[Rfam]
RNA sequence: AAGUUGUAUGUGAGAAUUGGAGGACACUAAACAAAGAAUGCUAAAUUUUGUAUAAUUUGUUUAGUUUCCUCCAAUAUCUUAUCUCCGACUU
Numbered sequence: 001a002a003g004u005u006g007u008a009u010g011u012g013a014g015a016a017u018u019g020g021a022g023g024a025c026a027c028u029a030a031a032c033a034a035a036g037a038a039u040g041c042u043a044a045a046u047u048u049u050g051u052a053u054a055a056u057u058u059g060u061u062u063a064g065u066u067u068c069c070u071c072c073a074a075u076a077u078c079u080u081a082u083c084u085c086c087g088a089c090u091u
Stems, first nucleotide, its partner, number of pairs: 004088003008084001011081004016075006023068002026065005032059002